[Rfam]
Source information
Shown here is a 91-nucleotide RNA from Bisgaardia hudsonensis, a member of the family "Glycine riboswitch aptamer". The organism belongs to Bisgaardia, within Bacteria. The match comes from Rfam's covariance-model search (44 bits). The pairing is the family consensus, mapped onto this sequence.

RNA sequence: AUGAAGGUAGCUGGAGAGUAGGGAAUUAACCCUACACCGACGAGGUAAAAUCUUUCAGGUGCGAUUAAUUCGCAAGGACUGUUACUGGACG
Number, nucleotide and partner (000 for none) at each position: 001a000002u000003g000004a000005a000006g086007g085008u084009a083010g082011c081012u000013g079014g000015a000016g000017a000018g000019u000020a000021g033022g032023g031024a000025a000026u000027u000028a000029a000030c000031c023032c022033u021034a000035c000036a060037c059038c058039g056040a055041c000042g000043a054044g053045g052046u000047a000048a000049a000050a000051u000052c045053u044054u043055u040056c039057a000058g038059g037060u036061g000062c000063g000064a000065u000066u000067a000068a000069u000070u000071c000072g000073c000074a000075a000076g000077g000078a000079c013080u000081g011082u010083u009084a008085c007086u006087g000088g000089a000090c000091g000
This family represents the bacterial glycine riboswitch.